[Rfam]
RNA sequence: UCAGGUCCCCCGUGUGGUGGUACCUCGCCGAACUCCCCCAGGGCAGGAAUGCAGCAAGGGUAGGCGAGCUCUUCCAGGUGCGCGGGGGACCCUUUGC
Dot-bracket structure: ...((((((((((((..(((.(.((((((.....(((.....(((....))).....)))..))))))...).))).)..)))))))))))......